[Rfam]
The family of this 164-nucleotide sequence from Marininema mesophilum is "M-box riboswitch aptamer (ykoK leader)". M-box riboswitch, also know as ykoK leader is described as a metaloregulatory RNA that sense divalent metals and function as a genetic control element of genes related to divalent metal transport in bacteria. The match comes from Rfam's covariance-model search (150 bits). For this family Rfam cites "Magnesium-sensing riboswitches in bacteria" (Ramesh and Winkler, RNA Biol, 2010). Its family is annotated with response to magnesium ion and regulation of gene expression in the Gene Ontology.
RNA sequence: AUACGUAUCUGUUAGGUGAGGCUCCUGUAUAGAGAUAUGCUGCUGCCCAAAAAUGUCGAGAGACGCCAAUGGGUCAACAGGGAAGAUCGGCUUAAGGUCUUUUCUAAUGUAGCUGGCAAAAUGCCUAUGCUAUACAGUGCUAAAACUCAACGAGAGGAACCAAA
Number, nucleotide and partner (000 for none) at each position: 001a000002u000003a000004c000005g160006u159007a000008u157009c156010u155011g151012u150013u095014a000015g147016g146017u145018g000019a000020g141021g140022c139023u000024c000025c137026u136027g135028u134029a133030u132031a131032g130033a000034g000035a000036u000037a000038u000039g113040c112041u111042g110043c109044u000045g074046c073047c072048c071049a070050a000051a000052a000053a000054u065055g064056u063057c062058g000059a000060g000061a000062g057063a056064c055065g054066c000067c000068a000069a000070u049071g048072g047073g046074u045075c000076a000077a000078c000079a000080g104081g103082g102083a101084a000085g000086a098087u097088c096089g000090g000091c000092u000093u000094a000095a013096g088097g087098u086099c000100u000101u083102u082103u081104c080105u000106a000107a000108u000109g043110u042111a041112g040113c039114u000115g125116g124117c123118a000119a000120a000121a000122u000123g117124c116125c115126u000127a000128u000129g000130c032131u031132a030133u029134a028135c027136a026137g025138u000139g022140c021141u020142a000143a000144a000145a017146c016147u015148c000149a000150a012151c011152g000153a000154g000155a010156g009157g008158a000159a006160c005161c000162a000163a000164a000